[Rfam]
RNA sequence: AACAAUUUGUCCCACGUCCCACGGCGUUUUAAAGAAGUCCUGAUUUUUGGGACUUUUUAAAACGCCGUGGGAUGCGGGACAAAUUGUUAA
Numbered sequence: 001a002a003c004a005a006u007u008u009g010u011c012c013c014a015c016g017u018c019c020c021a022c023g024g025c026g027u028u029u030u031a032a033a034g035a036a037g038u039c040c041u042g043a044u045u046u047u048u049g050g051g052a053c054u055u056u057u058u059a060a061a062a063c064g065c066c067g068u069g070g071g072a073u074g075c076g077g078g079a080c081a082a083a084u085u086g087u088u089a090a
Stems, first nucleotide, its partner, number of pairs: 001088013015074021
Rfam assigns this 90-nucleotide RNA from Pipistrellus kuhlii to the family "mir-9261 microRNA precursor family".
It scores 94 bits against the family's covariance model.
Gene Ontology terms of the family: RISC complex and miRNA-mediated post-transcriptional gene silencing.